[Rfam]
RNA: mir-9193 microRNA precursor family
Organism: Myotis lucifugus
RNA sequence: CUUGGGGGAGGGGUCCCCUCAGCCCAGAUUGUGAGAGGGCACAGGCCAGGCUGAGGGACCCCACCGGUACAGG
Numbered sequence: 001c002u003u004g005g006g007g008g009a010g011g012g013g014u015c016c017c018c019u020c021a022g023c024c025c026a027g028a029u030u031g032u033g034a035g036a037g038g039g040c041a042c043a044g045g046c047c048a049g050g051c052u053g054a055g056g057g058a059c060c061c062c063a064c065c066g067g068u069a070c071a072g073g
Stems, first nucleotide, its partner, number of pairs: 003071002006068001008064001010062005016057009027046001029044005